Rfam assigns this 93-nucleotide RNA from Clostridiales bacterium PH28_bin88 to the family "pan motif". It scores 52 bits against the family's covariance model.

[Rfam]
RNA sequence: CGGGUGGCAUUCCUACAGGAAGCCGCACCGGCGAGAAUCCUACAAGUGUAUACUGUUGUAGACCGCUUGGAUCCCUGGGACCGAGACGGAAGG
Number, nucleotide and partner (000 for none) at each position: 001c030002g029003g028004g026005u025006g024007g023008c022009a000010u021011u020012c000013c000014u000015a000016c000017a000018g000019g000020a011021a010022g008023c007024c006025g005026c004027a000028c003029c002030g001031g000032c000033g000034a000035g000036a000037a000038u000039c000040c000041u000042a000043c000044a000045a000046g000047u000048g000049u000050a000051u000052a000053c000054u000055g000056u000057u000058g000059u000060a000061g000062a000063c089064c088065g087066c085067u084068u083069g082070g081071a000072u080073c079074c078075c000076u000077g000078g074079g073080a072081c070082c069083g068084a067085g066086a000087c065088g064089g063090a000091a000092g000093g000